[Rfam]
RNA sequence: AAGGCAAACCAGUUUGUCGCUGUUUCGUUUAUUCGAGAGAGAGGAAAGUCUGGGCAGUACAGAGCACCGUACUUCUUAACGAGAAGGAUUCUAAGCAAUUAGAUUACAGAUAGUGCCACAGAAAUAAGUAGCCUUGGAGUAAUAUUCAAGGUCAUAGUGAAAAGGCGAGGUAAGAGCUCACCGCUCCGAUGGUGACAUCGUUGGCUAGGUAAACCUUACGGACUGAAAGACCAUGUAAACCAAGGUUUGAGAACUGCUCGUUCAACUUGGAGGGUAGGUCGAUUGAUCCCGCGGGUGACUUCGGGACUAGAUAAAUGACAAACAGCCAUCUUCGAUGGUUUACAGAACCCGGCUUAUGGUUUGCCUUUGUU
Numbered sequence: 001a002a003g004g005c006a007a008a009c010c011a012g013u014u015u016g017u018c019g020c021u022g023u024u025u026c027g028u029u030u031a032u033u034c035g036a037g038a039g040a041g042a043g044g045a046a047a048g049u050c051u052g053g054g055c056a057g058u059a060c061a062g063a064g065c066a067c068c069g070u071a072c073u074u075c076u077u078a079a080c081g082a083g084a085a086g087g088a089u090u091c092u093a094a095g096c097a098a099u100u101a102g103a104u105u106a107c108a109g110a111u112a113g114u115g116c117c118a119c120a121g122a123a124a125u126a127a128g129u130a131g132c133c134u135u136g137g138a139g140u141a142a143u144a145u146u147c148a149a150g151g152u153c154a155u156a157g158u159g160a161a162a163a164g165g166c167g168a169g170g171u172a173a174g175a176g177c178u179c180a181c182c183g184c185u186c187c188g189a190u191g192g193u194g195a196c197a198u199c200g201u202u203g204g205c206u207a208g209g210u211a212a213a214c215c216u217u218a219c220g221g222a223c224u225g226a227a228a229g230a231c232c233a234u235g236u237a238a239a240c241c242a243a244g245g246u247u248u249g250a251g252a253a254c255u256g257c258u259c260g261u262u263c264a265a266c267u268u269g270g271a272g273g274g275u276a277g278g279u280c281g282a283u284u285g286a287u288c289c290c291g292c293g294g295g296u297g298a299c300u301u302c303g304g305g306a307c308u309a310g311a312u313a314a315a316u317g318a319c320a321a322a323c324a325g326c327c328a329u330c331u332u333c334g335a336u337g338g339u340u341u342a343c344a345g346a347a348c349c350c351g352g353c354u355u356a357u358g359g360u361u362u363g364c365c366u367u368u369g370u371u
Stems, first nucleotide, its partner, number of pairs: 001367011012323007020041002023038005046355003050352005055225004062259004067221005072086005087107001088105001090103005108216002113214002115210003129156002131152008164182002167179003183205001184203001187200005229280004240270005251263004287306005293300002
Annotation: Bacterial RNase P class A: a 371-nucleotide RNA sequence from Brumimicrobium salinarum. NCBI's taxonomy places the organism under Bacteria, Pseudomonadati, Flavobacteriia, Crocinitomicaceae, Brumimicrobium.